[Rfam]
RNA sequence: CGACGUUUCCAUUCACAACGGAUCGUCCGGCACGUACCUGCCGGUGAAGGAGAACAGA
Numbered sequence: 001c002g003a004c005g006u007u008u009c010c011a012u013u014c015a016c017a018a019c020g021g022a023u024c025g026u027c028c029g030g031c032a033c034g035u036a037c038c039u040g041c042c043g044g045u046g047a048a049g050g051a052g053a054a055c056a057g058a
Stems, first nucleotide, its partner, number of pairs: 009050002012048004027044006

A member of the RNA family "msiK RNA" from Agromyces kandeliae, 58 nucleotides long. The family's consensus secondary structure is taken from published work. The organism belongs to Agromyces, within Bacteria.